Shown here is a 241-nucleotide sequence from Brevibacillus sp. WF146, a member of the family "T-box leader".
RNA sequence: GAGAAUGCGUUGAAGAGGAGUAGUACGAAAGGCAACCACGGCAUCAGAGAGUUGACGGCAGGUGCGAGUCAACCCGUGACUUUCCGAACUCGCCUCGAAGCACUCCGCCCGAAGGCCGGCUGGUUCCGCCGGCUGCGUAAGGAGGAGCGUCUCGUCCGCGAUAGGGACAUCAAGCGGGUGAACGAUUCGUUCGCCAAUCAGGGUGGUACCGCGGGAGCGUCUGAAUCCUCUCGUCCCUUUC
Dot-bracket structure: ......((......((((........(((((.......(((.........((((((...........)))))))))...)))))........))))...))..(((.((...............................)).))).(((.......)))................(((((((.....)))))))....((((.......(((((((..........)))))))))))...

Record summary
From the family's description: Uncharged tRNA acts as the effector for transcription antitermination of genes in the T-box leader family.